The record is an 86-nucleotide sequence, which matches "DUF3800-X RNA" in Rfam. It is one of the family's seed sequences. The family's consensus secondary structure is taken from published work. By type it is a small RNA.

RNA sequence: UAGGGGGUAAGGUCGGCGAUAGCCCCUCCGUCCGAAACGAUGAGGCCCGCGUAAGCGGGGUGGGAUGGAGUAGGACGGGGCCCCUU
Numbered sequence: 001u002a003g004g005g006g007g008u009a010a011g012g013u014c015g016g017c018g019a020u021a022g023c024c025c026c027u028c029c030g031u032c033c034g035a036a037a038c039g040a041u042g043a044g045g046c047c048c049g050c051g052u053a054a055g056c057g058g059g060g061u062g063g064g065a066u067g068g069a070g071u072a073g074g075a076c077g078g079g080g081c082c083c084c085u086u
Stems, first nucleotide, its partner, number of pairs: 002085005026080008046059005